[Rfam]
RNA sequence: ACUGGCCUAUGAUGAUUGCAGAAUUAUUGCCUACAUUGUUUGAGUACUUCAUUGUGAUAAGUGUUUGCUUUGCAACUCUUCUGAGGCCAGU
Numbered sequence: 001a002c003u004g005g006c007c008u009a010u011g012a013u014g015a016u017u018g019c020a021g022a023a024u025u026a027u028u029g030c031c032u033a034c035a036u037u038g039u040u041u042g043a044g045u046a047c048u049u050c051a052u053u054g055u056g057a058u059a060a061g062u063g064u065u066u067g068c069u070u071u072g073c074a075a076c077u078c079u080u081c082u083g084a085g086g087c088c089a090g091u
Stems, first nucleotide, its partner, number of pairs: 001091002004088004

Description:
Small nucleolar RNA SNORD34: a 91-nucleotide sequence from Elaeis guineensis. A search with the family's covariance model found it, with a score of 48 bits. Pairs were carried over by alignment from the consensus structure, which was predicted with PFOLD. Rfam 15.1 lists 1,319 matches to the family in 583 species. For this family Rfam cites "Purified box C/D snoRNPs are able to reproduce site-specific 2'-O-methylation of target RNA in vitro" (Galardi et al., Mol Cell Biol, 2002).